[Rfam]
This 210-nucleotide RNA sequence from Streptomyces mexicanus belongs to the Rfam family "Streptomyces RNA 1601". The literature on the family includes a 2011 paper in RNA Biol by Vockenhuber et al., "Deep sequencing-based identification of small non-coding RNAs in Streptomyces coelicolor". About the family: Identified by deep sequencing of transcriptome at the end of exponential growth phase. Appears longer on northern blot than sequencing transcript. Streptomyces specific.
RNA sequence: GUCGACCGGCCGGACACCUCUCGUGUGCGGCCCACAAGUGGAGGCUCCGAUCUCCCACCUGACCGUCCCGAGGGACGGCGGGUCACCCGGUCAGGCGAUCACCGCCGUUCCGUACGGACGACGGAGUCGCCCGAAGCGCGCCCCGCGAUCAUCGCGGCGGUGCUCCGGUAGUGCUUGGAGCCCCGCCUGUGAUCGUCCGGGGCAUUUUUU
Numbered sequence: 001g002u003c004g005a006c007c008g009g010c011c012g013g014a015c016a017c018c019u020c021u022c023g024u025g026u027g028c029g030g031c032c033c034a035c036a037a038g039u040g041g042a043g044g045c046u047c048c049g050a051u052c053u054c055c056c057a058c059c060u061g062a063c064c065g066u067c068c069c070g071a072g073g074g075a076c077g078g079c080g081g082g083u084c085a086c087c088c089g090g091u092c093a094g095g096c097g098a099u100c101a102c103c104g105c106c107g108u109u110c111c112g113u114a115c116g117g118a119c120g121a122c123g124g125a126g127u128c129g130c131c132c133g134a135a136g137c138g139c140g141c142c143c144c145g146c147g148a149u150c151a152u153c154g155c156g157g158c159g160g161u162g163c164u165c166c167g168g169u170a171g172u173g174c175u176u177g178g179a180g181c182c183c184c185g186c187c188u189g190u191g192a193u194c195g196u197c198c199g200g201g202g203c204a205u206u207u208u209u210u
Base pairs, nucleotide, nucleotide: 004092005091006090007089008088009087012028029084030083031082032081033080035061036060038058039057040056041055042053043052063078064077065076066075067074068073094131095130096129097128098127102124103123104122106120107119108118140203141202142201143200144199145198146195147194148193153191154190155189156187157186158185159184160183162181163180164179165178166177